[Rfam]
RNA sequence: GCUUUCCGCGGCUUCACCGCCGCGGCCUCAUUGAAGC
Numbered sequence: 001g002c003u004u005u006c007c008g009c010g011g012c013u014u015c016a017c018c019g020c021c022g023c024g025g026c027c028u029c030a031u032u033g034a035a036g037c
Base pairs, nucleotide, nucleotide: 006025007024008023009022010021011020012019
This 37-nucleotide sequence from Rhodoplanes serenus belongs to the Rfam family "CRISPR RNA direct repeat element".